Notes
The family of this 102-nucleotide RNA sequence from Evansella caseinilytica is "Purine riboswitch aptamer". The source organism's lineage runs through Bacteria, Bacillota, Bacilli, Bacillaceae and Evansella. Riboswitches are metabolite binding domains within certain messenger RNAs that serve as precision sensors for their corresponding targets.
RNA sequence: AUCCUAUUAUAUGGUGCCUCUCAUAUAUCCUUGGAAAUACGGUCCGAGAGUCUCUACCAGGCAGCCGUAAACUGCCUGACUAUGAAGGCAGACGUUUCUCUU
Number, nucleotide and partner (000 for none) at each position: 001a000002u000003c000004c000005u000006a000007u000008u000009a000010u000011a000012u000013g000014g000015u000016g000017c000018c088019u087020c000021u085022c084023a083024u082025a081026u000027a000028u000029c000030c048031u047032u046033g045034g044035a043036a000037a000038u000039a000040c000041g000042g000043u035044c034045c033046g032047a031048g030049a000050g000051u000052c000053u000054c000055u000056a000057c000058c078059a077060g076061g075062c074063a073064g072065c000066c000067g000068u000069a000070a000071a000072c064073u063074g062075c061076c060077u059078g058079a000080c000081u025082a024083u023084g022085a021086a000087g019088g018089c000090a000091g000092a000093c000094g000095u000096u000097u000098c000099u000100c000101u000102u000